[Rfam]
RNA: Glutamine riboswitch aptamer (glnA leader)
Organism: Gloeocapsa sp. PCC 7428
RNA sequence: AUCGUUCAUCUUUCAUAUCAGAAAGACGGAAGUAGGGGAAAUUCCCGAAGGAACGCGCC
Dot-bracket structure: ..(((((.(((((........)))))..[.....(((......)))....)))))]...
Numbered sequence: 001a002u003c004g005u006u007c008a009u010c011u012u013u014c015a016u017a018u019c020a021g022a023a024a025g026a027c028g029g030a031a032g033u034a035g036g037g038g039a040a041a042u043u044c045c046c047g048a049a050g051g052a053a054c055g056c057g058c059c
Stems, first nucleotide, its partner, number of pairs: 003055005009026005029056001035046003